[Rfam]
Nucleotides: 068
Base pairs, nucleotide, nucleotide: 001018002017003016004015006014007013008012029048031047032046033045034044035043
Number, partner (000 for none) and nucleotide at each position: 001018g002017g003016g004015c005000a006014c007013c008012u009000a010000c011000g012008g013007g014006g015004g016003c017002c018001u019000u020000c021000a022000u023000c024000u025000a026000a027000c028000a029048g030000c031047c032046g033045g034044g035043c036000g037000c038000g039000a040000a041000c042000c043035g044034c045033c046032c047031g048029c049000a050000a051000a052000g053000c054000a055000a056000c057000g058000g059000a060000a061000g062000a063000c064000a065000g066000a067000a068000a
This 68-nucleotide sequence belongs to the Rfam family "L2-Alphaproteobacteria ribosomal protein leader". The family's RNA type in Rfam is cis-regulatory leader. A reference for the family is Eckert and Weinberg (2020), "Discovery of 20 novel ribosomal leader candidates in bacteria and archaea", BMC Microbiol. The sequence is in the family's curated seed alignment.